[Rfam]
This 87-nucleotide RNA from Cephus cinctus belongs to the Rfam family "mir-2944 microRNA precursor family". Its family is annotated with miRNA-mediated post-transcriptional gene silencing and RISC complex in the Gene Ontology. It scores 57 bits against the family's covariance model. The family's consensus secondary structure was predicted with RNAalifold.
RNA sequence: AACGGUAAGAUUCAGAGGAACUGUUGCAGUGAUGUGUCGUAAGAAAUUCCUCAUAUCACAGCAGUAGUUACCUGGGAUCCUAUCGUU
Numbered sequence: 001a002a003c004g005g006u007a008a009g010a011u012u013c014a015g016a017g018g019a020a021c022u023g024u025u026g027c028a029g030u031g032a033u034g035u036g037u038c039g040u041a042a043g044a045a046a047u048u049c050c051u052c053a054u055a056u057c058a059c060a061g062c063a064g065u066a067g068u069u070a071c072c073u074g075g076g077a078u079c080c081u082a083u084c085g086u087u
Base pairs, nucleotide, nucleotide: 003085004084005083006082007081009079010078011077016073017072018071019069020068021067022066024064025063026062029059030058031057032056033055034054035053036052
Dot-bracket structure: ..(((((.(((....(((((((.(((..((((((((...............))))))))..))).)))).)))...))).)))))..

The family has 6 seed sequences and 66 matches in Rfam 15.1.